[Rfam]
RNA: Repression of heat shock gene expression (ROSE) element
Organism: Sphingobium cloacae
RNA sequence: CCGGACGCCAUCCGGGUCCGGAUGGACAUAGAGGGCGUCGGCUCUCGCAUACCGACGCUUCUCAUGCCCAAAUUGCUUCGUUGGAGGAUUUGGAAAUGAGAA
Numbered sequence: 001c002c003g004g005a006c007g008c009c010a011u012c013c014g015g016g017u018c019c020g021g022a023u024g025g026a027c028a029u030a031g032a033g034g035g036c037g038u039c040g041g042c043u044c045u046c047g048c049a050u051a052c053c054g055a056c057g058c059u060u061c062u063c064a065u066g067c068c069c070a071a072a073u074u075g076c077u078u079c080g081u082u083g084g085a086g087g088a089u090u091u092g093g094a095a096a097u098g099a100g101a102a
Stems, first nucleotide, its partner, number of pairs: 001021006008015002033060009061100005068093007076086003